[Rfam]
RNA: F6 TB sRNA
Organism: Nocardia asteroides
RNA sequence: AGAUCGGCUCCGUGUAGUUGCCAGACCCCCGACCCGGCAACUACGCGGAGCCUUCCU
Numbered sequence: 001a002g003a004u005c006g007g008c009u010c011c012g013u014g015u016a017g018u019u020g021c022c023a024g025a026c027c028c029c030c031g032a033c034c035c036g037g038c039a040a041c042u043a044c045g046c047g048g049a050g051c052c053u054u055c056c057u
Stems, first nucleotide, its partner, number of pairs: 002056001007051016